RgsA sRNA: a 199-nucleotide sequence from Pseudomonas knackmussii.

[Rfam]
RNA sequence: GGGAGCUAUCUGCAGUAUUCCAAAUCCGUUUAAAAAACCGCCGGGCGGCGGUGGAAGCCCUGCAAAGUUGGCCAAUACUUGAAAUUACUGGUGUGCGGCAUCUCCCCCCAAGUGUCCCACCAGUGAAGGUACCGAGGAUCGCGUACCUUAUUGUUACACUCCUAAUGGUCUUGACCCGGAUUCAUCCCCCAGAACCCGG
Numbered sequence: 001g002g003g004a005g006c007u008a009u010c011u012g013c014a015g016u017a018u019u020c021c022a023a024a025u026c027c028g029u030u031u032a033a034a035a036a037a038c039c040g041c042c043g044g045g046c047g048g049c050g051g052u053g054g055a056a057g058c059c060c061u062g063c064a065a066a067g068u069u070g071g072c073c074a075a076u077a078c079u080u081g082a083a084a085u086u087a088c089u090g091g092u093g094u095g096c097g098g099c100a101u102c103u104c105c106c107c108c109c110a111a112g113u114g115u116c117c118c119a120c121c122a123g124u125g126a127a128g129g130u131a132c133c134g135a136g137g138a139u140c141g142c143g144u145a146c147c148u149u150a151u152u153g154u155u156a157c158a159c160u161c162c163u164a165a166u167g168g169u170c171u172u173g174a175c176c177c178g179g180a181u182u183c184a185u186c187c188c189c190c191a192g193a194a195c196c197c198g199g
Base pairs, nucleotide, nucleotide: 040169041168042167043166087124088123089122090121094119095118097116099114100113101112125152126149127148128147129146130145131144132143133141176199177198178197179196181194182193183192
Lineage of the source: Bacteria > Pseudomonadales > Pseudomonadaceae > Pseudomonas > Pseudomonas knackmussii. Rfam links the family to the GO terms response to oxidative stress, response to hydrogen peroxide and sRNA-mediated gene silencing. By type it is a small RNA. The base pairs follow the family's consensus structure, which was predicted with RNAalifold.